Shown here is a 319-nucleotide RNA sequence from Monoraphidium neglectum, a member of the family "Group I catalytic intron".
Rfam links the family to the GO term Group I intron splicing.
The source organism's lineage runs through Eukaryota, Chlorophyta, Chlorophyceae, Selenastraceae and Monoraphidium.
The base pairs follow the family's consensus structure, which is taken from published work.
Group I catalytic introns are large self-splicing ribozymes. They catalyse their own excision from mRNA, tRNA and rRNA precursors in a wide range of organisms. The core secondary structure consists of 9 paired regions (P1-P9).

[Rfam]
RNA sequence: AUCGAACCAUCAACAAUUAGGUGGUUAAGAGUCACAGGAAAAGCUGUGGCUAGUGGACUUGUAAAAGUCUGCAAGACUGUCAAAUUGCCGGGACAUCCUGUUGAUGCCAAAGGUACCGCUACCAAACUGAAAAGUUUGGUGGCACUGUAGUGAAAACUGCAGGUGUGGUAACAAUCCAUUGGUGAGGGACAAUCGGCAGCCAAGCGCUUCGGGUUUUUCGGCCCAUGCGUGCAGUUCACAGACUAGAUGGCAGUCGGCUGAUCAACAAAUUAAUAGUUGGUCGGCUUAAGAUAUAGUCGGCUCCCACAGUGAUGUGGCU
Numbered sequence: 001a002u003c004g005a006a007c008c009a010u011c012a013a014c015a016a017u018u019a020g021g022u023g024g025u026u027a028a029g030a031g032u033c034a035c036a037g038g039a040a041a042a043g044c045u046g047u048g049g050c051u052a053g054u055g056g057a058c059u060u061g062u063a064a065a066a067g068u069c070u071g072c073a074a075g076a077c078u079g080u081c082a083a084a085u086u087g088c089c090g091g092g093a094c095a096u097c098c099u100g101u102u103g104a105u106g107c108c109a110a111a112g113g114u115a116c117c118g119c120u121a122c123c124a125a126a127c128u129g130a131a132a133a134g135u136u137u138g139g140u141g142g143c144a145c146u147g148u149a150g151u152g153a154a155a156a157c158u159g160c161a162g163g164u165g166u167g168g169u170a171a172c173a174a175u176c177c178a179u180u181g182g183u184g185a186g187g188g189a190c191a192a193u194c195g196g197c198a199g200c201c202a203a204g205c206g207c208u209u210c211g212g213g214u215u216u217u218u219c220g221g222c223c224c225a226u227g228c229g230u231g232c233a234g235u236u237c238a239c240a241g242a243c244u245a246g247a248u249g250g251c252a253g254u255c256g257g258c259u260g261a262u263c264a265a266c267a268a269a270u271u272a273a274u275a276g277u278u279g280g281u282c283g284g285c286u287u288a289a290g291a292u293a294u295a296g297u298c299g300g301c302u303c304c305c306a307c308a309g310u311g312a313u314g315u316g317g318c319u
Stems, first nucleotide, its partner, number of pairs: 005026007013018001030045003075255005081249002086198006096189004199235002204230004212223004239299001241298005257285009304317005